Source information: A member of the RNA family "BsrC" from Paenibacillus sp. NEAU-GSW1, 90 nucleotides long. Pairs were carried over by alignment from the consensus structure, which was predicted with CMfinder. Rfam 15.1 lists 572 matches to the family in 553 species.
RNA sequence: UUACUUUAAAACAACGGAAGCCCUGCCUCUCUUCCGUCCUUGCGGCUCCGAAGACCGCGCCAGUGUGAAUCAAAGAAUAGCUUUACUGAA
Numbered sequence: 001u002u003a004c005u006u007u008a009a010a011a012c013a014a015c016g017g018a019a020g021c022c023c024u025g026c027c028u029c030u031c032u033u034c035c036g037u038c039c040u041u042g043c044g045g046c047u048c049c050g051a052a053g054a055c056c057g058c059g060c061c062a063g064u065g066u067g068a069a070u071c072a073a074a075g076a077a078u079a080g081c082u083u084u085a086c087u088g089a090a
Stems, first nucleotide, its partner, number of pairs: 035067002039063002041059005047053001
Notes: By type it is a small RNA.